[Rfam]
RNA sequence: GUGAGGUGAUGACAAAGUUUAUCCAUUCUCUGAGUGCAGUGGUGCUGCCCUCCUGCAAUACCCCGAUUCCUGUUCUAGGCUCUGGGUGCUGUGCAGCCUCCAGAGACCCUCUAGUCUCCCAGUGUCCUACUGGGGGGCUGGUGUGGCAUAUGGCUGGCUGCCUGCAGGAAUGCAGUGAUGCUGACAGGGUUGGAGUCCCUCUUUGCAGGGCUCUGUCCUCACUUAGAUGAA
Numbered sequence: 001g002u003g004a005g006g007u008g009a010u011g012a013c014a015a016a017g018u019u020u021a022u023c024c025a026u027u028c029u030c031u032g033a034g035u036g037c038a039g040u041g042g043u044g045c046u047g048c049c050c051u052c053c054u055g056c057a058a059u060a061c062c063c064c065g066a067u068u069c070c071u072g073u074u075c076u077a078g079g080c081u082c083u084g085g086g087u088g089c090u091g092u093g094c095a096g097c098c099u100c101c102a103g104a105g106a107c108c109c110u111c112u113a114g115u116c117u118c119c120c121a122g123u124g125u126c127c128u129a130c131u132g133g134g135g136g137g138c139u140g141g142u143g144u145g146g147c148a149u150a151u152g153g154c155u156g157g158c159u160g161c162c163u164g165c166a167g168g169a170a171u172g173c174a175g176u177g178a179u180g181c182u183g184a185c186a187g188g189g190u191u192g193g194a195g196u197c198c199c200u201c202u203u204u205g206c207a208g209g210g211c212u213c214u215g216u217c218c219u220c221a222c223u224u225a226g227a228u229g230a231a
Stems, first nucleotide, its partner, number of pairs: 026231003030226002034222002039185002042182001043180002046177003049172001051169007059088005065082001069079003093161006107145001108143001112140013187220002189217001191215004196210002

This 231-nucleotide RNA from Ceyx cyanopectus belongs to the Rfam family "Small nucleolar RNA SNORD17". A search with the family's covariance model found it, with a score of 96 bits. The organism belongs to Ceyx, within Eukaryota. Gene Ontology terms of the family: nucleolus and RNA processing. Rfam describes the family as follows. The snoRNA HBI-43 belongs to the C/D family of snoRNAs, guiding 2'O-ribose methylation at position U3797 of the 28S rRNA. Pseudouridylation in position U3797 is predicted to be guided by the H/ACA snoRNA ACA48.